The family of this 87-nucleotide RNA from Saliterribacillus persicus is "c-di-GMP-I riboswitch aptamer".
[Rfam]
RNA sequence: AAUGGAAAAAGGCAAACUUAUUGAAAAAUAAGGACGCAAAGCUACAGAUCUAACGUAAUUUCUUACGAUGAUGGCUGGGUUACUCUG
Numbered sequence: 001a002a003u004g005g006a007a008a009a010a011g012g013c014a015a016a017c018u019u020a021u022u023g024a025a026a027a028a029u030a031a032g033g034a035c036g037c038a039a040a041g042c043u044a045c046a047g048a049u050c051u052a053a054c055g056u057a058a059u060u061u062c063u064u065a066c067g068a069u070g071a072u073g074g075c076u077g078g079g080u081u082a083c084u085c086u087g
Stems, first nucleotide, its partner, number of pairs: 012037002017032006040081004045077003048072003055066004